About this RNA
Shown here is a 62-nucleotide RNA sequence, a member of the family "Plastid-ccsA-ndhD-1 3UTR RNA". About the family: Plastid-ccsA-ndhD-1 is a non-coding RNA (ncRNA) recognised in plastids. The sequence is in the family's curated seed alignment.
[Rfam]
RNA sequence: UAUAAACAGGCAAGAACCAUUUAAAUCAAGUAGUAUAGUGAUUUAAAUGGUUCUCACAAACG
Numbered sequence: 001u002a003u004a005a006a007c008a009g010g011c012a013a014g015a016a017c018c019a020u021u022u023a024a025a026u027c028a029a030g031u032a033g034u035a036u037a038g039u040g041a042u043u044u045a046a047a048u049g050g051u052u053c054u055c056a057c058a059a060a061c062g
Base pairs, nucleotide, nucleotide: 010057013054014053015052016051017050018049019048020047021046022045023044024043025042026041027040028039
The family has 488 seed sequences and 1,322 matches in Rfam 15.1. Clan: Plastid-ccsA_ndhD 3UTR RNA clan.